RNA sequence: GACUCUGUUGUCAAUGAUGAAACAUGGUUAAGCUGAAAAUAAUGAUUUAAUUCAGUUUCUUCGUCACUACCACUGAGACAGCAGAUGG
Numbered sequence: 001g002a003c004u005c006u007g008u009u010g011u012c013a014a015u016g017a018u019g020a021a022a023c024a025u026g027g028u029u030a031a032g033c034u035g036a037a038a039a040u041a042a043u044g045a046u047u048u049a050a051u052u053c054a055g056u057u058u059c060u061u062c063g064u065c066a067c068u069a070c071c072a073c074u075g076a077g078a079c080a081g082c083a084g085a086u087g088g
Base pairs, nucleotide, nucleotide: 004085005084006083007082008081009080010079011078012077